[Rfam]
RNA sequence: CGCCGCCGCAGGGCGGCUCUCCGGGCGCCUGACGGGCUCGGCGAAUCCAGAGACGGGCACCGGUCGUGUCCGGUGCCGCUCGUAACCAUUUUGCUCCGUGGAGGAUCUGGCUAUGCGCA
Numbered sequence: 001c002g003c004c005g006c007c008g009c010a011g012g013g014c015g016g017c018u019c020u021c022c023g024g025g026c027g028c029c030u031g032a033c034g035g036g037c038u039c040g041g042c043g044a045a046u047c048c049a050g051a052g053a054c055g056g057g058c059a060c061c062g063g064u065c066g067u068g069u070c071c072g073g074u075g076c077c078g079c080u081c082g083u084a085a086c087c088a089u090u091u092u093g094c095u096c097c098g099u100g101g102a103g104g105a106u107c108u109g110g111c112u113a114u115g116c117g118c119a
Stems, first nucleotide, its partner, number of pairs: 021041006028035002054078001056077008079117001081115004086110003091105002094103003
Repression of heat shock gene expression (ROSE) element: a 119-nucleotide sequence from Bradyrhizobium japonicum. The family's consensus secondary structure is taken from published work. The organism belongs to Bradyrhizobium, within Bacteria. For this family Rfam cites "A mRNA-based thermosensor controls expression of rhizobial heat shock genes" (Nocker et al., Nucleic Acids Res, 2001). From the family's description: This family represents a 5' UTR cis-regulatory element found in heat shock mRNAs and is known as the ROSE (repression of heat shock gene expression) element. The ROSE element is a negative regulator of heat shock gene expression. The secondary structure is thought to be regulated by temperature.